[Rfam]
RNA: Iron response element I
RNA sequence: GAGAUUCUUGCUUCAACAGUGUUUGAACGGAAUUUC
Numbered sequence: 001g002a003g004a005u006u007c008u009u010g011c012u013u014c015a016a017c018a019g020u021g022u023u024u025g026a027a028c029g030g031a032a033u034u035u036c
Stems, first nucleotide, its partner, number of pairs: 001036008010028001012027005017021001
Dot-bracket structure: ((((((((.(.((((((...).))))))))))))))